Rfam assigns this 174-nucleotide RNA sequence from Lentibacillus halodurans to the family "Lysine riboswitch aptamer". A reference for the family is Mandal et al. (2003), "Riboswitches Control Fundamental Biochemical Pathways in Bacillus subtilis and Other Bacteria", Cell. Lineage of the source: Bacteria > Bacillati > Bacillota > Bacillaceae > Lentibacillus.
RNA sequence: CGGUGAGGUAGAGGUGCAGGCAGUAUGAGUAGCCGGCGUGAGAAUGACAACGAUGACCGCCGAUGAAAGGACUGUUUGCCGAAGCGUGAUAAGGGUCUGGCUUAUCACUGCUGGUAUAUCACUGAAGAAGCGAUAUACUGUCAUGCUCCGAGUGCAUGGAGGACUACUGAUCGA
Numbered sequence: 001c002g003g004u005g006a007g008g009u010a011g012a013g014g015u016g017c018a019g020g021c022a023g024u025a026u027g028a029g030u031a032g033c034c035g036g037c038g039u040g041a042g043a044a045u046g047a048c049a050a051c052g053a054u055g056a057c058c059g060c061c062g063a064u065g066a067a068a069g070g071a072c073u074g075u076u077u078g079c080c081g082a083a084g085c086g087u088g089a090u091a092a093g094g095g096u097c098u099g100g101c102u103u104a105u106c107a108c109u110g111c112u113g114g115u116a117u118a119u120c121a122c123u124g125a126a127g128a129a130g131c132g133a134u135a136u137a138c139u140g141u142c143a144u145g146c147u148c149c150g151a152g153u154g155c156a157u158g159g160a161g162g163a164c165u166a167c168u169g170a171u172c173g174a
Stems, first nucleotide, its partner, number of pairs: 007168005016079009032064001034062005083112004087107007113139008122130002141159006